The family of this 76-nucleotide RNA sequence from Alligator sinensis is "Mammalian CPEB3 ribozyme". Pairs were carried over by alignment from the consensus structure, which is taken from published work. A search with the family's covariance model found it, with a score of 58 bits.
RNA sequence: GGUUGCAAGUUUGAGGCCGUAGCAGAAGCGCUCACAGCGCGGCCUGUCAGAUUCCAUUGAAUCUGUGAAUCCUGCU
Numbered sequence: 001g002g003u004u005g006c007a008a009g010u011u012u013g014a015g016g017c018c019g020u021a022g023c024a025g026a027a028g029c030g031c032u033c034a035c036a037g038c039g040c041g042g043c044c045u046g047u048c049a050g051a052u053u054c055c056a057u058u059g060a061a062u063c064u065g066u067g068a069a070u071c072c073u074g075c076u
Stems, first nucleotide, its partner, number of pairs: 015044004021076005027070001028040003048065007